[Rfam]
RNA: c-di-GMP-I riboswitch aptamer
Organism: Ilyobacter polytropus
RNA sequence: CUCCGAAAAAGGUAAAACAGGAGAAAUCCUGUGACACAAAACUAUAGGGUCUAAUUCUUUCUUAAGAUAUGACAGCCAGUUGUCGAG
Number, nucleotide and partner (000 for none) at each position: 001c000002u000003c000004c000005g000006a000007a000008a000009a000010a000011g000012g037013u036014a000015a000016a000017a032018c031019a030020g029021g028022a027023g000024a000025a000026a000027u022028c021029c020030u019031g018032u017033g000034a000035c000036a013037c012038a000039a000040a081041a080042c079043u078044a000045u000046a000047g077048g076049g073050u072051c071052u000053a000054a000055u000056u067057c066058u065059u064060u000061c000062u000063u000064a059065a058066g057067a056068u000069a000070u000071g051072a050073c049074a000075g000076c048077c047078a043079g042080u041081u040082g000083u000084c000085g000086a000087g000